RNA: mir-3492 microRNA precursor family
RNA sequence: GGCCUUAUGUAUACGAGCCGAGAUUUCAGCAGACACAAGACAGUCAGGACUAAUGAGGCUCCCGAGAUAAGUAAAGCG
Numbered sequence: 001g002g003c004c005u006u007a008u009g010u011a012u013a014c015g016a017g018c019c020g021a022g023a024u025u026u027c028a029g030c031a032g033a034c035a036c037a038a039g040a041c042a043g044u045c046a047g048g049a050c051u052a053a054u055g056a057g058g059c060u061c062c063c064g065a066g067a068u069a070a071g072u073a074a075a076g077c078g
Stems, first nucleotide, its partner, number of pairs: 002077002005074002008071001010069003017062001020061003024058005